[Rfam]
RNA: DUF2693-FD RNA
RNA sequence: GCCCUACUGACAGUUUGAAACUGACAUCCGGUAGUGAGAAUCGGGUAGGGC
Numbered sequence: 001g002c003c004c005u006a007c008u009g010a011c012a013g014u015u016u017g018a019a020a021c022u023g024a025c026a027u028c029c030g031g032u033a034g035u036g037a038g039a040a041u042c043g044g045g046u047a048g049g050g051c
Stems, first nucleotide, its partner, number of pairs: 001051007011023002019035001025038001028044005